RNA sequence: GUACGCUCUUGGUGUGUCUGUGGUCUUGUUUGAAGCUUUUUUGAAAAGUUUAGAGAUUGUAGCCUAAAAAGAGAGUUAGUUUCGCAUCGUUGGCUUAUAAGGGCCAAUACAUAAUCGGAACGCCCACUUGGGU
Number, nucleotide and partner (000 for none) at each position: 001g000002u000003a076004c075005g000006c073007u072008c071009u070010u000011g000012g000013u000014g000015u000016g000017u000018c062019u061020g060021u059022g058023g000024u056025c055026u054027u053028g000029u000030u000031u000032g000033a000034a050035g049036c048037u047038u046039u045040u000041u000042u000043g000044a000045a039046a038047a037048g036049u035050u034051u000052a000053g027054a026055g025056a024057u000058u022059g021060u020061a019062g018063c000064c000065u000066a000067a000068a000069a000070a009071g008072a007073g006074a000075g004076u003077u000078a000079g000080u000081u000082u000083c000084g000085c000086a000087u000088c000089g000090u107091u106092g105093g104094c103095u102096u101097a000098u000099a000100a000101g096102g095103g094104c093105c092106a091107a090108u000109a000110c000111a000112u000113a000114a000115u000116c000117g000118g000119a000120a000121c000122g000123c000124c000125c000126a000127c000128u000129u000130g000131g000132g000133u000
RNA: purD RNA motif